This 103-nucleotide sequence from Coptis chinensis belongs to the Rfam family "Small nucleolar RNA Z266". Pairs were carried over by alignment from the consensus structure, which was predicted with PFOLD. A search with the family's covariance model found it, with a score of 79 bits. The organism belongs to Coptis, within Eukaryota. It is annotated as a C/D-box small nucleolar RNA.
RNA sequence: AAGUGGCAGAAUGAUGAUUCAAUUAGAUGUGUGAAAGAAGAGAUUUUCUUUUUUCUUGAUGAACUUAACUUGUUGAGGCAUAAUUAUGUCUGACUUGCCACUU
Dot-bracket structure: (((((((((....................................................................................).))))))))